[Rfam]
RNA: Small nucleolar RNA ACA64
RNA sequence: UUCAUGUGCAAAUCACUCGGACAUCUUCUGUGGCCCCUGGUGUGAUAACUGUGCCCACAGCAGCGGGAGCAUUAAACUCAGUGCCCACGUUAAAGUGUGGGGAGUGCAACCCAUGUUCCUGUAAUC
Dot-bracket structure: .......(.(...(((..((.(..........)))....)))...)..)................(.(((((......((.(...(((........)))...).))......))))).).......
Numbered sequence: 001u002u003c004a005u006g007u008g009c010a011a012a013u014c015a016c017u018c019g020g021a022c023a024u025c026u027u028c029u030g031u032g033g034c035c036c037c038u039g040g041u042g043u044g045a046u047a048a049c050u051g052u053g054c055c056c057a058c059a060g061c062a063g064c065g066g067g068a069g070c071a072u073u074a075a076a077c078u079c080a081g082u083g084c085c086c087a088c089g090u091u092a093a094a095g096u097g098u099g100g101g102g103a104g105u106g107c108a109a110c111c112c113a114u115g116u117u118c119c120u121g122u123a124a125u126c
Stems, first nucleotide, its partner, number of pairs: 008049001010046001014042003019035002022033001066119001068117005079106002082103001086099003